[Rfam]
A member of the RNA family "Bacterial small subunit ribosomal RNA" from uncultured Nitrospirae bacterium MY4-5C, 597 nucleotides of a longer RNA. The sequence is in the family's curated seed alignment. Rfam 15.1 lists 42,628 matches to the family in 10,626 species. Its family is annotated with ribosome and structural constituent of ribosome in the Gene Ontology. For this family Rfam cites "Crystal structure of the ribosome at 5.5 A resolution" (Yusupov et al., Science, 2001).

RNA sequence: UGACGGGGGCCCGCACAAGCGGUGGAGCAUGUGGUUUAAUUCGACGCAACGCGAAGAACCUUACCUGGGUUUGACAUGCAGAUGGUAGUGAUCCGAAAGGUGAGCGACUUUCCCGUAAGGGAGAGAGUCUGCACAGGUGCUGCAUGGCUGUCGUCAGCUCGUGCCGUGAGGUGUUGGGUUAAGUCCCGCAACGAGCGCAACCCCUAUCCUUUGUUGCCAUCAGGUUAAGCUGGGCACUCUAAGGAAACUGCCGGCGAUGAGUUGGAGGAAGGUGGGGACGACGUCAAGUCAUCAUGGCCCUUAUAUCCAGGGCUACACACGUGCUACAAUGGUUAUUACAGAGGGAAGCAAUGCCGCGAGGUGGAGCAAAUCCCCAAAAAUAUUCGUAGUUGGGAUCGGAGUCUGCAACUCGACUCCGUGAACGUGGAAUCGCUAGUAAUCGCAGAUCAGCUACGCUGCGGUGAAUACGUUCCCGGGCCUUGUACACACCGCCCGUCACACCACGAAAGUCUGCUGUACCCGAAGAGGGUGAGCUAACCAGCAAUGGAGGCAGCUCGCUAAGGUAUGGUAGGUAAUUGGGGUGAAGUCGUAACAAGG
Numbered sequence: 001u002g003a004c005g006g007g008g009g010c011c012c013g014c015a016c017a018a019g020c021g022g023u024g025g026a027g028c029a030u031g032u033g034g035u036u037u038a039a040u041u042c043g044a045c046g047c048a049a050c051g052c053g054a055a056g057a058a059c060c061u062u063a064c065c066u067g068g069g070u071u072u073g074a075c076a077u078g079c080a081g082a083u084g085g086u087a088g089u090g091a092u093c094c095g096a097a098a099g100g101u102g103a104g105c106g107a108c109u110u111u112c113c114c115g116u117a118a119g120g121g122a123g124a125g126a127g128u129c130u131g132c133a134c135a136g137g138u139g140c141u142g143c144a145u146g147g148c149u150g151u152c153g154u155c156a157g158c159u160c161g162u163g164c165c166g167u168g169a170g171g172u173g174u175u176g177g178g179u180u181a182a183g184u185c186c187c188g189c190a191a192c193g194a195g196c197g198c199a200a201c202c203c204c205u206a207u208c209c210u211u212u213g214u215u216g217c218c219a220u221c222a223g224g225u226u227a228a229g230c231u232g233g234g235c236a237c238u239c240u241a242a243g244g245a246a247a248c249u250g251c252c253g254g255c256g257a258u259g260a261g262u263u264g265g266a267g268g269a270a271g272g273u274g275g276g277g278a279c280g281a282c283g284u285c286a287a288g289u290c291a292u293c294a295u296g297g298c299c300c301u302u303a304u305a306u307c308c309a310g311g312g313c314u315a316c317a318c319a320c321g322u323g324c325u326a327c328a329a330u331g332g333u334u335a336u337u338a339c340a341g342a343g344g345g346a347a348g349c350a351a352u353g354c355c356g357c358g359a360g361g362u363g364g365a366g367c368a369a370a371u372c373c374c375c376a377a378a379a380a381u382a383u384u385c386g387u388a389g390u391u392g393g394g395a396u397c398g399g400a401g402u403c404u405g406c407a408a409c410u411c412g413a414c415u416c417c418g419u420g421a422a423c424g425u426g427g428a429a430u431c432g433c434u435a436g437u438a439a440u441c442g443c444a445g446a447u448c449a450g451c452u453a454c455g456c457u458g459c460g461g462u463g464a465a466u467a468c469g470u471u472c473c474c475g476g477g478c479c480u481u482g483u484a485c486a487c488a489c490c491g492c493c494c495g496u497c498a499c500a501c502c503a504c505g506a507a508a509g510u511c512u513g514c515u516g517u518a519c520c521c522g523a524a525g526a527g528g529g530u531g532a533g534c535u536a537a538c539c540a541g542c543a544a545u546g547g548a549g550g551c552a553g554c555u556c557g558c559u560a561a562g563g564u565a566u567g568g569u570a571g572g573u574a575a576u577u578g579g580g581g582u583g584a585a586g587u588c589g590u591a592a593c594a595a596g597g
Stems, first nucleotide, its partner, number of pairs: 001486002003483003007480007015470002019433005024327001026325008034316002040055004064311007077133007088105002093100002108125007136300002139298004145294002147289003150285001152283002157196006163172003175188004202277004207245005213239001217234002221232003248268002251265005331385002334382004343374003348367002353362003392423001397418007439462007489596001491593001494589002499583004504578003509573012525558001527556004533551003538547002
Dot-bracket structure: (((((.(((((((.((..((((((.((((((((((....((((........))))........(((((((......(((((((....((...((....))...))..(((((((....))))))).)))))))..((.((((..((((((.((...(((((((((....)))..((((......))))..)))))).....((((.(((((.(...((..(((......)))))....).)))))..((.(((((.....))))).)).....))))....)).).)))...))))))))....)))))))...)).)))))))).)...((.((((.....(((..((...(((....)))...))....)))....)))).))......(....(((((((........)))))))....).....))))).....(((((((..........)))))))......))...)))))))))).))..(.(..((...((((.(((..((((((((((((....(.((((..(((..((......)).))).)))).)...))))))))))))..))).))))....))...)..).